A member of the RNA family "mir-9229 microRNA precursor family" from Cnephaeus nilssonii, 76 nucleotides long.
NCBI's taxonomy places the organism under Eukaryota, Eumetazoa, Laurasiatheria, Yangochiroptera, Cnephaeus.
A search with the family's covariance model found it, with a score of 71 bits.
RNA sequence: GAGACAUGCUUGUGGUACAGGGCUUGUUUCAGUGGGGCUUUGGUGCUCACUGAGUCUGCCUCCCGAAUGUGUCACU
Numbered sequence: 001g002a003g004a005c006a007u008g009c010u011u012g013u014g015g016u017a018c019a020g021g022g023c024u025u026g027u028u029u030c031a032g033u034g035g036g037g038c039u040u041u042g043g044u045g046c047u048c049a050c051u052g053a054g055u056c057u058g059c060c061u062c063c064c065g066a067a068u069g070u071g072u073c074a075c076u
Base pairs, nucleotide, nucleotide: 001075003073004072005071006070007069010066011065012064014062015061018058019057021056022055023054029053030052031051032050033049034048035047036046037044038043